Rfam assigns this 259-nucleotide RNA from Paenibacillus psychroresistens to the family "T-box leader".
RNA sequence: GAUAACGCAAUGAUUAGGAUUAGUAAGGAUCAUUCCUUCGUACAGAGAGCUGCGGGUUGGUGCAACGCAGUCAAGGAACUCCCUGAACUCACUUAUGAGCGGUAAAGCGGAAGCUAAGAGUCCUCAGCUCUUAUUAGUACGUUUUGACGGUUGACCCCCGUGAUCAGGUAGCAAUCCCCAAGGAUUGCAACGAGUGGGUUCUGCGAAAGCUGAACCAAUAAGAGUGGUACCGCGAUGGUUAAGACCUGUCGUCUCUUAC
Numbered sequence: 001g002a003u004a005a006c007g008c009a010a011u012g013a014u015u016a017g018g019a020u021u022a023g024u025a026a027g028g029a030u031c032a033u034u035c036c037u038u039c040g041u042a043c044a045g046a047g048a049g050c051u052g053c054g055g056g057u058u059g060g061u062g063c064a065a066c067g068c069a070g071u072c073a074a075g076g077a078a079c080u081c082c083c084u085g086a087a088c089u090c091a092c093u094u095a096u097g098a099g100c101g102g103u104a105a106a107g108c109g110g111a112a113g114c115u116a117a118g119a120g121u122c123c124u125c126a127g128c129u130c131u132u133a134u135u136a137g138u139a140c141g142u143u144u145u146g147a148c149g150g151u152u153g154a155c156c157c158c159c160g161u162g163a164u165c166a167g168g169u170a171g172c173a174a175u176c177c178c179c180a181a182g183g184a185u186u187g188c189a190a191c192g193a194g195u196g197g198g199u200u201c202u203g204c205g206a207a208a209g210c211u212g213a214a215c216c217a218a219u220a221a222g223a224g225u226g227g228u229a230c231c232g233c234g235a236u237g238g239u240u241a242a243g244a245c246c247u248g249u250c251g252u253c254u255c256u257u258a259c
Base pairs, nucleotide, nucleotide: 007100008099015095016094017093018092026084027083028082038074040072049071050070051069052068053067054066103146104145105144106143107142108141109140148160149159150158197216198215199214200213201212203210221256222255223254224253232252233251234250235249236248237247238246

A search with the family's covariance model found it, with a score of 120 bits. Rfam 15.1 lists 19,395 matches to the family in 1,923 species.